[Rfam]
A member of the RNA family "Lysine riboswitch aptamer" from Lederbergia citrea, 181 nucleotides long.
Gene Ontology term of the family: lysine biosynthetic process.
A search with the family's covariance model found it, with a score of 123 bits.
NCBI's taxonomy places the organism under Bacteria, Bacillati, Bacillota, Caryophanales, Lederbergia.
About the family: Riboswitches are metabolite binding domains within certain messenger RNAs that serve as precision sensors for their corresponding targets.
The base pairs follow the family's consensus structure, which is taken from published work.
RNA sequence: CGAUGGGGUAGAGGCUGCGGUUUAUAAGAGUAGAGCGGGCGAGAUUCAAUGAAAUUUAUGACUCCGUUUGAAAGGAUAAGCUGCCGAAGUUUGGAUAGAUUCAUUGUAUAUCCAUGCUGGUGAUGUAUUCGAAAAGGAACAUUACUGUCACGUGAUUUUAACGUGGAGGGCUAUCUUCGGA
Dot-bracket structure: .....((((((.....(((((((((.......(((((((.......................)))))))......)))))))))...(((.((((((.(.......).)))))).)))((((((((.((......)).)))))))).((((((.......))))))....)))))).....